[Rfam]
RNA: L4-Archaeoglobi ribosomal protein leades
Organism: Halobellus clavatus
RNA sequence: CUGACGGCCGCGUUCGGGUCAAUUGCGAACUGCAACACCCGGUCUCGCUCCACGUGCCUCCGUCGAUGGAGGUCAAGGAGGGAGCGCGCGUCGCCAUCAG
Number, nucleotide and partner (000 for none) at each position: 001c100002u099003g098004a097005c000006g000007g000008c000009c090010g089011c088012g087013u086014u000015c041016g040017g039018g038019u000020c000021a000022a000023u035024u034025g033026c032027g031028a000029a000030c000031u027032g026033c025034a024035a023036c000037a000038c018039c017040c016041g015042g000043u000044c084045u083046c082047g000048c080049u079050c078051c077052a000053c000054g000055u000056g000057c000058c000059u000060c000061c000062g000063u000064c000065g000066a000067u000068g000069g000070a000071g000072g000073u000074c000075a000076a000077g051078g050079a049080g048081g000082g046083a045084g044085c000086g013087c012088g011089c010090g009091u000092c000093g000094c000095c000096a000097u004098c003099a002100g001